[Rfam]
RNA: MIR162_1 microRNA precursor family
RNA sequence: GCGAAAGAUGCUGGAGGCAGCGGUUGAUCGAUCUCUUUGUGGGAAUUUUGAAAAAAACUCAAAGCAUGAACAGAUCGAUAAACCUCUGCAUCCAGCGGUCGCCAC
Numbered sequence: 001g002c003g004a005a006a007g008a009u010g011c012u013g014g015a016g017g018c019a020g021c022g023g024u025u026g027a028u029c030g031a032u033c034u035c036u037u038u039g040u041g042g043g044a045a046u047u048u049u050g051a052a053a054a055a056a057a058c059u060c061a062a063a064g065c066a067u068g069a070a071c072a073g074a075u076c077g078a079u080a081a082a083c084c085u086c087u088g089c090a091u092c093c094a095g096c097g098g099u100c101g102c103c104a105c
Stems, first nucleotide, its partner, number of pairs: 013093003018088003022084004027079007036070003